[Rfam]
Rfam assigns this 184-nucleotide RNA sequence from Variovorax sp. PBS-H4 to the family "Manganese Mn2+ riboswitch aptamer (yybP-ykoY)". The pairing is the family consensus, mapped onto this sequence.

RNA sequence: GCCCGGGUCAUUGGGGAGUAGCCGCCUUCCAUCGCGAGAAGGGUGUGCGUCAACAGACUUGUCUGGCCGUCGGCCCGACAUGGCGCAGACAGUGUUCAGCCUGGCGAGACCUUUGACCGUGCAGCUUCGGAUGUGGCCGAAGGUGCUGCACGGUCAAUUGCGUCCUUCGGCCCAAGGAAUCCCU
Numbered sequence: 001g002c003c004c005g006g007g008u009c010a011u012u013g014g015g016g017a018g019u020a021g022c023c024g025c026c027u028u029c030c031a032u033c034g035c036g037a038g039a040a041g042g043g044u045g046u047g048c049g050u051c052a053a054c055a056g057a058c059u060u061g062u063c064u065g066g067c068c069g070u071c072g073g074c075c076c077g078a079c080a081u082g083g084c085g086c087a088g089a090c091a092g093u094g095u096u097c098a099g100c101c102u103g104g105c106g107a108g109a110c111c112u113u114u115g116a117c118c119g120u121g122c123a124g125c126u127u128c129g130g131a132u133g134u135g136g137c138c139g140a141a142g143g144u145g146c147u148g149c150a151c152g153g154u155c156a157a158u159u160g161c162g163u164c165c166u167u168c169g170g171c172c173c174a175a176g177g178a179a180u181c182c183c184u
Stems, first nucleotide, its partner, number of pairs: 026041001028040001043090002046087007060080004092182001094180004
Dot-bracket structure: .........................(.(...........)).((.(((((((.......((((.............))))))))))).)).(.((((...............................................................................)))).)..

The literature on the family includes a 2001 paper in Curr Biol by Argaman et al., "Novel small RNA-encoding genes in the intergenic regions of Escherichia coli".